Shown here is a 138-nucleotide RNA sequence from Sparus aurata, a member of the family "Small nucleolar RNA SNORA8".
ACA8 is a member of the H/ACA class of snoRNA that guide the sites of modification of uridines to pseudouridines.
Clan: SNORA8 clan.
The family's RNA type in Rfam is H/ACA-box small nucleolar RNA.
It scores 43 bits against the family's covariance model.

RNA sequence: GGCACUGUGUGGUAUCUGCAGCCAGUUGUUCAUCUUCUGGUUUGUUCAAAAGUAAGUGCUAGACAAACUCAACAUUGGCACUGUUGGUCUCCAUGCUGCCUGUGCCUGGAGUCCUGGUAUAUUUGUUGAAACACACUC
Numbered sequence: 001g002g003c004a005c006u007g008u009g010u011g012g013u014a015u016c017u018g019c020a021g022c023c024a025g026u027u028g029u030u031c032a033u034c035u036u037c038u039g040g041u042u043u044g045u046u047c048a049a050a051a052g053u054a055a056g057u058g059c060u061a062g063a064c065a066a067a068c069u070c071a072a073c074a075u076u077g078g079c080a081c082u083g084u085u086g087g088u089c090u091c092c093a094u095g096c097u098g099c100c101u102g103u104g105c106c107u108g109g110a111g112u113c114c115u116g117g118u119a120u121a122u123u124u125g126u127u128g129a130a131a132c133a134c135a136c137u138c
Stems, first nucleotide, its partner, number of pairs: 002059005014053002017050001018045004023040001024038002028034001062127006069117003077106005